[Rfam]
RNA: Lysine riboswitch aptamer
RNA sequence: CAAUAAAAUAGAGGCGCGGUUAUCACGAAAAUUGCUGAGCAGACAAAAGCGUUGAUGCAAUUGUAAGGAUCGCCGCCGAAACAAGAUUGAACCUGUCAUUUGAUCUUUGUUGGGCCAUGUGGAAAGACUGCAUGGACUGUCCUAGGAUCACCUAGGGGGUGCUAUUAAUUGG
Numbered sequence: 001c002a003a004u005a006a007a008a009u010a011g012a013g014g015c016g017c018g019g020u021u022a023u024c025a026c027g028a029a030a031a032u033u034g035c036u037g038a039g040c041a042g043a044c045a046a047a048a049g050c051g052u053u054g055a056u057g058c059a060a061u062u063g064u065a066a067g068g069a070u071c072g073c074c075g076c077c078g079a080a081a082c083a084a085g086a087u088u089g090a091a092c093c094u095g096u097c098a099u100u101u102g103a104u105c106u107u108u109g110u111u112g113g114g115c116c117a118u119g120u121g122g123a124a125a126g127a128c129u130g131c132a133u134g135g136a137c138u139g140u141c142c143u144a145g146g147a148u149c150a151c152c153u154a155g156g157g158g159g160u161g162c163u164a165u166u167a168a169u170u171g172g
Stems, first nucleotide, its partner, number of pairs: 007166005016076005022070003030062006080111004084106008112138002115135008140157007